[Rfam]
RNA sequence: ACGCGUCAUGCGCCGUAGGCAGGAGCGGGGGACCCAAAGGUUCCGCCGCCGGGCCCCGGUCGUCGAGAGACGGCUGAGGACCGGCUCGGGGUGAAGCCAGGUGCGACAGAGCACAUGGCCGGGCAACUCACUUGGCCCGAACCCGACAGCUGACCUCGUAGGCGUCGGUGAGGAGAUGU
Number, nucleotide and partner (000 for none) at each position: 001a000002c000003g000004c000005g000006u000007c000008a000009u000010g000011c164012g163013c162014c161015g000016u000017a000018g000019g000020c000021a000022g000023g000024a000025g159026c158027g157028g156029g155030g154031g000032a000033c000034c000035c088036a000037a000038a000039g000040g000041u000042u000043c000044c000045g000046c000047c000048g000049c000050c000051g000052g000053g000054c000055c000056c000057c000058g000059g000060u000061c000062g000063u000064c000065g000066a000067g000068a000069g000070a000071c000072g000073g000074c000075u000076g000077a000078g000079g000080a000081c000082c000083g000084g000085c000086u000087c000088g035089g144090g143091g142092u000093g000094a000095a000096g000097c118098c117099a116100g000101g000102u000103g000104c000105g000106a000107c000108a000109g000110a000111g000112c000113a000114c000115a000116u099117g098118g097119c000120c000121g138122g137123g136124c135125a000126a000127c000128u000129c000130a000131c000132u000133u000134g000135g124136c123137c122138c121139g000140a000141a000142c091143c090144c089145g000146a000147c000148a000149g000150c000151u000152g000153a000154c030155c029156u028157c027158g026159u025160a000161g014162g013163c012164g011165u000166c000167g000168g000169u000170g000171a000172g000173g000174a000175g000176a000177u000178g000179u000
Rfam assigns this 179-nucleotide RNA sequence from Streptomyces scopuliridis to the family "c-di-AMP riboswitch aptamer (ydaO/yuaA leader)". Its family is annotated with regulation of gene expression and cyclic-di-AMP binding in the Gene Ontology. It scores 64 bits against the family's covariance model. The organism belongs to Streptomyces scopuliridis, within Bacteria. On this family, see Barrick et al., Proc Natl Acad Sci U S A 2004: "New RNA motifs suggest an expanded scope for riboswitches in bacterial genetic control".